[Rfam]
RNA sequence: CUCACUCAUGUGAGCAGAAAGAGUAGCAUGAUAUUUUCUUCAAGGUCUUUACCAACCUUUCAUCGUUCCCUUCUUUGCAAUAACGCUGUUUUGCAAAACCGUGAUAGUGCUGAGCCGAUGAGCCUCUAAUGAAAUUAUAGACUCAUCGGCUCAGGACCAUUGCGGUUGUGCAAAACGGUGUUAUUGCUGAGAAGGGAACGCAUGAGAGGUUGGUAAAGACCUCAAUGGAAUCUUAUGGUACUCUUUUUGCUCACAUGAGUGAGU
Number, nucleotide and partner (000 for none) at each position: 001c263002u262003c261004a260005c259006u258007c257008a256009u255010g254011u253012g252013a251014g250015c249016a248017g247018a246019a245020a244021g243022a242023g241024u240025a239026g000027c237028a236029u235030g234031a233032u000033a231034u230035u229036u000037u228038c227039u000040u225041c000042a000043a222044g221045g220046u219047c218048u217049u216050u215051a214052c213053c212054a211055a210056c209057c208058u207059u206060u205061c204062a203063u202064c200065g199066u198067u197068c196069c195070c194071u193072u192073c191074u190075u189076u000077g187078c186079a185080a184081u183082a182083a181084c180085g179086c178087u177088g176089u175090u174091u173092u172093g171094c170095a169096a000097a167098a166099c165100c164101g163102u162103g161104a160105u159106a000107g157108u156109g000110c154111u153112g152113a151114g150115c149116c148117g147118a146119u145120g144121a143122g142123c000124c140125u139126c000127u137128a136129a135130u134131g000132a000133a000134a130135u129136u128137a127138u000139a125140g124141a000142c122143u121144c120145a119146u118147c117148g116149g115150c114151u113152c112153a111154g110155g000156a108157c107158c000159a105160u104161u103162g102163c101164g100165g099166u098167u097168g000169u095170g094171c093172a092173a091174a090175a089176c088177g087178g086179u085180g084181u083182u082183a081184u080185u079186g078187c077188u000189g075190a074191g073192a072193a071194g070195g069196g068197a067198a066199c065200g064201c000202a063203u062204g061205a060206g059207a058208g057209g056210u055211u054212g053213g052214u051215a050216a049217a048218g047219a046220c045221c044222u043223c000224a000225a040226u000227g038228g037229a035230a034231u033232c000233u031234u030235a029236u028237g027238g000239u025240a024241c023242u022243c021244u020245u019246u018247u017248u016249g015250c014251u013252c012253a011254c010255a009256u008257g007258a006259g005260u004261g003262a002263g001264u000
MIR839 microRNA precursor family: a 264-nucleotide sequence from Arabidopsis thaliana. Rfam links the family to the GO terms miRNA-mediated post-transcriptional gene silencing and RISC complex. Lineage of the source: Eukaryota > Streptophyta > eudicotyledons > Pentapetalae > Arabidopsis.